This 126-nucleotide RNA sequence from Sodalis ligni belongs to the Rfam family "Phenylalanine leader peptide". By type it is a cis-regulatory leader. The source organism's lineage runs through Bacteria, Pseudomonadati, Enterobacterales, Bruguierivoracaceae and Sodalis.
RNA sequence: UAUGCACAUGACCCCGUUUUUCUUCGCCUUCUUUUUUACCUUCCCCUGAACGGGAGGCAGCUCGUCAUGUGAGAAAGAAUGCGAAGACGAACAAAAAGCCUCCUGACAACAGGGGGCUUUUUUUAU
Dot-bracket structure: ...............((((.(((((((.((((((.((((..((((......))))(((.....)))..)))).)))))).))))))).))))..((((((((((......))))))))))......